[Rfam]
RNA sequence: CUUGAUGGAGCCCAGCCACAGGGGGCUGCCCUCGGGACGGUCCUGGCCGUACGUGGCCAGGAGGGCCUGGGCCUC
Numbered sequence: 001c002u003u004g005a006u007g008g009a010g011c012c013c014a015g016c017c018a019c020a021g022g023g024g025g026c027u028g029c030c031c032u033c034g035g036g037a038c039g040g041u042c043c044u045g046g047c048c049g050u051a052c053g054u055g056g057c058c059a060g061g062a063g064g065g066c067c068u069g070g071g072c073c074u075c
Stems, first nucleotide, its partner, number of pairs: 016024002031071003038065001043060003047056003
The record is a 75-nucleotide sequence from Streptomyces lavendulae, which matches "ASpks TB sRNA" in Rfam.
The base pairs follow the family's consensus structure, which is taken from published work.
Lineage of the source: Bacteria > Actinomycetota > Kitasatosporales > Streptomycetaceae > Streptomyces lavendulae.